The family of this 600-nucleotide part of an RNA from Physcomitrium patens is "Eukaryotic large subunit ribosomal RNA". Clan: LSU clan.
[Rfam]
RNA sequence: GGGAAAGAAGACCCUGUUGAGCUUGACUCUAGUCCGACUUUGUGAAAUGACUUAAGAGGUGUAGAAUAAGUGGGAGCCCUCAAAGCGCAAGUGAAAUACCACUACUUUUAACGUUAUUUUACUUAUUCCAUGAGGUGGAGGCGGGACUCUGUCCCUGCUUCUAGUCUUAAGGCGCGCCCCUCGGGUGCGCCGAUCCAGGUGGAAGACAUUGUCAGGUGGGGAGUUUGGCUGGGGCGGCACAUCUGUUAAAAGAUAACGCAGGUGUCCUAAGAUGAGCUCAACGAGAACAGAAAUCUCGUGUGGAACAAAAGGGUAAAAGCUCAUUUGAUUUUGAUUUUCAGUACGAAUACAAACUGUGAAAGCAUGGCCUAUCGAUCCUUUAGUCUUUCGGAAUUUGAAGCUAGAGGUGUCAGAAAAGUUACCACAGGGAUAACUGGCUUGUGGCAGCCAAGCGUUCAUAGCGACGUUGCUUUUUGAUCCUUCGAUGUCGGCUCUUCCUAUCAUUGUGAAGCAGAAUUCACCAAGUGUUGGAUUGUUCACCCACCAAUAGGGAACGUGAGCUGGGUUUAGACCGUCGUGAGACAGGUUAGUUUUACCCUA
Numbered sequence: 001g002g003g004a005a006a007g008a009a010g011a012c013c014c015u016g017u018u019g020a021g022c023u024u025g026a027c028u029c030u031a032g033u034c035c036g037a038c039u040u041u042g043u044g045a046a047a048u049g050a051c052u053u054a055a056g057a058g059g060u061g062u063a064g065a066a067u068a069a070g071u072g073g074g075a076g077c078c079c080u081c082a083a084a085g086c087g088c089a090a091g092u093g094a095a096a097u098a099c100c101a102c103u104a105c106u107u108u109u110a111a112c113g114u115u116a117u118u119u120u121a122c123u124u125a126u127u128c129c130a131u132g133a134g135g136u137g138g139a140g141g142c143g144g145g146a147c148u149c150u151g152u153c154c155c156u157g158c159u160u161c162u163a164g165u166c167u168u169a170a171g172g173c174g175c176g177c178c179c180c181u182c183g184g185g186u187g188c189g190c191c192g193a194u195c196c197a198g199g200u201g202g203a204a205g206a207c208a209u210u211g212u213c214a215g216g217u218g219g220g221g222a223g224u225u226u227g228g229c230u231g232g233g234g235c236g237g238c239a240c241a242u243c244u245g246u247u248a249a250a251a252g253a254u255a256a257c258g259c260a261g262g263u264g265u266c267c268u269a270a271g272a273u274g275a276g277c278u279c280a281a282c283g284a285g286a287a288c289a290g291a292a293a294u295c296u297c298g299u300g301u302g303g304a305a306c307a308a309a310a311g312g313g314u315a316a317a318a319g320c321u322c323a324u325u326u327g328a329u330u331u332u333g334a335u336u337u338u339c340a341g342u343a344c345g346a347a348u349a350c351a352a353a354c355u356g357u358g359a360a361a362g363c364a365u366g367g368c369c370u371a372u373c374g375a376u377c378c379u380u381u382a383g384u385c386u387u388u389c390g391g392a393a394u395u396u397g398a399a400g401c402u403a404g405a406g407g408u409g410u411c412a413g414a415a416a417a418g419u420u421a422c423c424a425c426a427g428g429g430a431u432a433a434c435u436g437g438c439u440u441g442u443g444g445c446a447g448c449c450a451a452g453c454g455u456u457c458a459u460a461g462c463g464a465c466g467u468u469g470c471u472u473u474u475u476g477a478u479c480c481u482u483c484g485a486u487g488u489c490g491g492c493u494c495u496u497c498c499u500a501u502c503a504u505u506g507u508g509a510a511g512c513a514g515a516a517u518u519c520a521c522c523a524a525g526u527g528u529u530g531g532a533u534u535g536u537u538c539a540c541c542c543a544c545c546a547a548u549a550g551g552g553a554a555c556g557u558g559a560g561c562u563g564g565g566u567u568u569a570g571a572c573c574g575u576c577g578u579g580a581g582a583c584a585g586g587u588u589a590g591u592u593u594u595a596c597c598c599u600a
Stems, first nucleotide, its partner, number of pairs: 001599003005594002013428004018424002020420005026224004033216002036213003042122010052111007069103005076086002126204005136197004143155005171191007227240001228238003241263006266367002272324006278304002281299006305314002329353003334348004355364003378406006386400004437478001439476001441475001443471006452462002489564001490562004494556001495553005502527002506521005529543003533539001570588004574583003